[Rfam]
RNA: Small nucleolar RNA Z247
RNA sequence: AGACUCGAUCACUGAUGAUGAUCUUGUCUUAUAUAUUCUUGGAGGACUUGGACAAGAAUAUGAUAUUGUGGUUGUCUCGGUCACUACUAGGGCUGAGUUAAUUUCAUUAACCGAUCUUCAUGGCUUGCUUUUAAGUCAAGA
Numbered sequence: 001a002g003a004c005u006c007g008a009u010c011a012c013u014g015a016u017g018a019u020g021a022u023c024u025u026g027u028c029u030u031a032u033a034u035a036u037u038c039u040u041g042g043a044g045g046a047c048u049u050g051g052a053c054a055a056g057a058a059u060a061u062g063a064u065a066u067u068g069u070g071g072u073u074g075u076c077u078c079g080g081u082c083a084c085u086a087c088u089a090g091g092g093c094u095g096a097g098u099u100a101a102u103u104u105c106a107u108u109a110a111c112c113g114a115u116c117u118u119c120a121u122g123g124c125u126u127g128c129u130u131u132u133a134a135g136u137c138a139a140g141a
Base pairs, nucleotide, nucleotide: 004140005139007137008136092112094110096108097107